Rfam assigns this 81-nucleotide RNA from Sinocyclocheilus rhinocerous to the family "mir-219 microRNA precursor family".
A reference for the family is Lai et al. (2003), "Computational identification of Drosophila microRNA genes", Genome Biol.
Taxonomically the source falls in Sinocyclocheilus (Eukaryota, Teleostomi, Neopterygii, Cypriniphysae).
A search with the family's covariance model found it, with a score of 67 bits.
[Rfam]
RNA sequence: UCAGAGUCUGAUUGUCCAAACGCAAUUCUUGAGUCUUCCUGAUCAUUGUGCAGGAGUUGUGGAUGGACAUCAUGCCUCUGG
Numbered sequence: 001u002c003a004g005a006g007u008c009u010g011a012u013u014g015u016c017c018a019a020a021c022g023c024a025a026u027u028c029u030u031g032a033g034u035c036u037u038c039c040u041g042a043u044c045a046u047u048g049u050g051c052a053g054g055a056g057u058u059g060u061g062g063a064u065g066g067a068c069a070u071c072a073u074g075c076c077u078c079u080g081g
Stems, first nucleotide, its partner, number of pairs: 002080005009072004014068005021061011